[Rfam]
RNA sequence: AUAUCGUGCCUUUCAGGCAUCCUCUCCUAAAACUUUCGUGGCCGGCCCGUUGGGUCGGCCUUUUUUUUGUCCGCA
Numbered sequence: 001a002u003a004u005c006g007u008g009c010c011u012u013u014c015a016g017g018c019a020u021c022c023u024c025u026c027c028u029a030a031a032a033c034u035u036u037c038g039u040g041g042c043c044g045g046c047c048c049g050u051u052g053g054g055u056c057g058g059c060c061u062u063u064u065u066u067u068u069g070u071c072c073g074c075a
Base pairs, nucleotide, nucleotide: 008018009017010016011015040060041059042058043057044056045055046054047053048052
The record is a 75-nucleotide RNA from Sphingomonas spermidinifaciens, which matches "Makes More Granules Regulator RNA (mmgR)" in Rfam. Rfam describes the family as follows. SuhB later renamed mmgR (makes more granules regulator) was a putative non-coding RNA found multiple times in the Agrobacterium tumefaciens genome and related alpha-proteobacteria. Clan: suhB sRNA clan. The family's RNA type in Rfam is small RNA. Rfam links the family to the GO terms protein binding, DNA-templated transcription, termination and response to nitrogen compound.